Notes:
The family of this 36-nucleotide RNA sequence from Thauera aromatica is "abiF RNA". The match comes from Rfam's covariance-model search (37 bits).
RNA sequence: CCCGCCGCGCCUCUCCACGAAGCGUACCAGGCGGGU
Numbered sequence: 001c002c003c004g005c006c007g008c009g010c011c012u013c014u015c016c017a018c019g020a021a022g023c024g025u026a027c028c029a030g031g032c033g034g035g036u
Base pairs, nucleotide, nucleotide: 001035002034003033004032005031006030008024009023010022

By type it is a small RNA.
Actinobacteria, Bacteroidetes, Clostridia, Proteobacteria, one Clostridia phage.